[Rfam]
This 81-nucleotide RNA sequence from Eurypyga helias belongs to the Rfam family "Small nucleolar RNA SNORD87". For this family Rfam cites "U87 RNA, a novel C/D box small nucleolar RNA from mammalian cells" (Gogolevskaya et al., Gene, 2002). Rfam 15.1 lists 539 matches to the family in 430 species. It is annotated as a C/D-box small nucleolar RNA. NCBI's taxonomy places the organism under Eukaryota, Sarcopterygii, Amniota, Archelosauria, Eurypyga. The base pairs follow the family's consensus structure. It scores 54 bits against the family's covariance model.
RNA sequence: GCUGGCAUAAUGAUGAAAUCUUUUUGCCGUUUACCCAUCUGACUGCUUUUUGAUGUGUACCUUUGAUUCUGAAAUGCCAGU
Numbered sequence: 001g002c003u004g005g006c007a008u009a010a011u012g013a014u015g016a017a018a019u020c021u022u023u024u025u026g027c028c029g030u031u032u033a034c035c036c037a038u039c040u041g042a043c044u045g046c047u048u049u050u051u052g053a054u055g056u057g058u059a060c061c062u063u064u065g066a067u068u069c070u071g072a073a074a075u076g077c078c079a080g081u
Stems, first nucleotide, its partner, number of pairs: 001081007